The family of this 90-nucleotide sequence from Aquitalea sp. FJL05 is "c-di-GMP-I riboswitch aptamer". NCBI's taxonomy places the organism under Bacteria, Betaproteobacteria, Neisseriales, Chromobacteriaceae, Aquitalea. It scores 67 bits against the family's covariance model.
[Rfam]
RNA sequence: GACCGUUAUAGGCAAAACCGGUGAAAGCCGGCGACGCAAAACUAAAGGGACUACGGGCGGCUUGGCCGCUUAUGUCAGCCAGUUGCCAGC
Numbered sequence: 001g002a003c004c005g006u007u008a009u010a011g012g013c014a015a016a017a018c019c020g021g022u023g024a025a026a027g028c029c030g031g032c033g034a035c036g037c038a039a040a041a042c043u044a045a046a047g048g049g050a051c052u053a054c055g056g057g058c059g060g061c062u063u064g065g066c067c068g069c070u071u072a073u074g075u076c077a078g079c080c081a082g083u084u085g086c087c088a089g090c
Stems, first nucleotide, its partner, number of pairs: 012037002018031005040084004047080002049076003056070004